This 254-nucleotide RNA from Virgibacillus sp. SK37 belongs to the Rfam family "BsrG". Rfam 15.1 lists 614 matches to the family in 343 species. Pairs were carried over by alignment from the consensus structure, which was predicted with WAR. Its family is annotated with toxin activity and autolysis in the Gene Ontology. By type it is a small RNA.
[Rfam]
RNA sequence: UGUAAUAGGGCUUUCAUGGGUGGUAGUUCACCCCUUUUUUGAAAGGGGGUGAUACGAUGACAGUAUUCGAAGCAUUGUUUCUGAUGAUCGCGUUCGCAACUUUAGUUGUAGCUAUACUGUCAGAACAAAAAAAGUAACCACCCGAUGAAUGCCUAGCCGCAUUUUGGUUGGUUACUUUUCCGAUUCAAACAUGUGAGCCGCGCGCCCUUGAGGGCUUUUACAAACCUUGACCGUUCCAUGUACCAGCAUGGGCG
Numbered sequence: 001u002g003u004a005a006u007a008g009g010g011c012u013u014u015c016a017u018g019g020g021u022g023g024u025a026g027u028u029c030a031c032c033c034c035u036u037u038u039u040u041g042a043a044a045g046g047g048g049g050u051g052a053u054a055c056g057a058u059g060a061c062a063g064u065a066u067u068c069g070a071a072g073c074a075u076u077g078u079u080u081c082u083g084a085u086g087a088u089c090g091c092g093u094u095c096g097c098a099a100c101u102u103u104a105g106u107u108g109u110a111g112c113u114a115u116a117c118u119g120u121c122a123g124a125a126c127a128a129a130a131a132a133a134g135u136a137a138c139c140a141c142c143c144g145a146u147g148a149a150u151g152c153c154u155a156g157c158c159g160c161a162u163u164u165u166g167g168u169u170g171g172u173u174a175c176u177u178u179u180c181c182g183a184u185u186c187a188a189a190c191a192u193g194u195g196a197g198c199c200g201c202g203c204g205c206c207c208u209u210g211a212g213g214g215c216u217u218u219u220a221c222a223a224a225c226c227u228u229g230a231c232c233g234u235u236c237c238a239u240g241u242a243c244c245a246g247c248a249u250g251g252g253c254g
Stems, first nucleotide, its partner, number of pairs: 001222001003220003007216001009199005017145001018143003022138001024136002028052003032049005059121007073086002096112002205213002232254003236251006
Rfam's curators write: bsrE, bsrG and bsrH pair through intermolecular interactions with antisense sRNAs. They form type I toxin/antitoxin system that includes an mRNA encoding for a short, toxic peptide (bsrE, bsrG and bsrH) and an antitoxin that is comprised of an antisense RNA. bsrG encodes a 39-amino-acid toxin, and the 180 nucleotide antisense sRNA called SR4 acts as the antitoxin (they overlap by 123 nucleotides).